[Rfam]
Rfam assigns this 178-nucleotide RNA from Pseudoalteromonas galatheae to the family "Lysine riboswitch aptamer". NCBI's taxonomy places the organism under Bacteria, Pseudomonadota, Alteromonadales, Pseudoalteromonadaceae, Pseudoalteromonas. The family has 47 seed sequences and 3,224 matches in Rfam 15.1.
RNA sequence: AGGGCUGGAAGAGGUGCGUUAUUCAGGUAACUAAGUGAAGGAGAGCAAACUCCGUUGCAGCUUAGUGAGGGGAAUACACGCCGAGAAAUUGAGUACUUUUUGCUAAUACUCGUUUCGGGCGACUGGGCUGAAUCCCAGCGACUGUCACCAACAUACUUGGUGGAGAGCUUCUGGUCUU
Numbered sequence: 001a002g003g004g005c006u007g008g009a010a011g012a013g014g015u016g017c018g019u020u021a022u023u024c025a026g027g028u029a030a031c032u033a034a035g036u037g038a039a040g041g042a043g044a045g046c047a048a049a050c051u052c053c054g055u056u057g058c059a060g061c062u063u064a065g066u067g068a069g070g071g072g073a074a075u076a077c078a079c080g081c082c083g084a085g086a087a088a089u090u091g092a093g094u095a096c097u098u099u100u101u102g103c104u105a106a107u108a109c110u111c112g113u114u115u116c117g118g119g120c121g122a123c124u125g126g127g128c129u130g131a132a133u134c135c136c137a138g139c140g141a142c143u144g145u146c147a148c149c150a151a152c153a154u155a156c157u158u159g160g161u162g163g164a165g166a167g168c169u170u171c172u173g174g175u176c177u178u
Base pairs, nucleotide, nucleotide: 006173007172008171009170010169011168016081017080018079019078023074030066031065032064033063034062035061036060085116086115087114088113089112091111092110093109094108095107117143118142120140123138124137125136126135127134145163146162147161148160149159150158151157